mir-86 microRNA precursor family: an 80-nucleotide RNA sequence from Caenorhabditis bovis. A reference for the family is Zisoulis et al. (2010), "Comprehensive discovery of endogenous Argonaute binding sites in", Nat Struct Mol Biol. The organism belongs to Caenorhabditis, within Eukaryota.

RNA sequence: UCACAGGCUAAGUGAAUGCUUUGCCACAGUCUUCGAACAAUAAAUUGUGAAGCUGGGCUAAGAUUCGCUUAGGCCGGUGA
Numbered sequence: 001u002c003a004c005a006g007g008c009u010a011a012g013u014g015a016a017u018g019c020u021u022u023g024c025c026a027c028a029g030u031c032u033u034c035g036a037a038c039a040a041u042a043a044a045u046u047g048u049g050a051a052g053c054u055g056g057g058c059u060a061a062g063a064u065u066c067g068c069u070u071a072g073g074c075c076g077g078u079g080a
Stems, first nucleotide, its partner, number of pairs: 004077001006075001009071009019062003023058003027055003